[Rfam]
The record is a 95-nucleotide RNA sequence from Dichanthelium oligosanthes, which matches "Small nucleolar RNA Z152/R70/R12/" in Rfam. The source organism's lineage runs through Eukaryota, Embryophyta, Euphyllophyta, Poales and Dichanthelium. Rfam classes the family as a C/D-box small nucleolar RNA.
RNA sequence: AAUGCGAUGAUGAUUUUAUAAAGGUUGAGGCAGUGGUGGCUUUGGUCACCGUGAGCCGUCAAACCAAAAAACGACUUCUCUUUCCACUGAGCAUU
Numbered sequence: 001a002a003u004g005c006g007a008u009g010a011u012g013a014u015u016u017u018a019u020a021a022a023g024g025u026u027g028a029g030g031c032a033g034u035g036g037u038g039g040c041u042u043u044g045g046u047c048a049c050c051g052u053g054a055g056c057c058g059u060c061a062a063a064c065c066a067a068a069a070a071a072c073g074a075c076u077u078c079u080c081u082u083u084c085c086a087c088u089g090a091g092c093a094u095u
Stems, first nucleotide, its partner, number of pairs: 001095005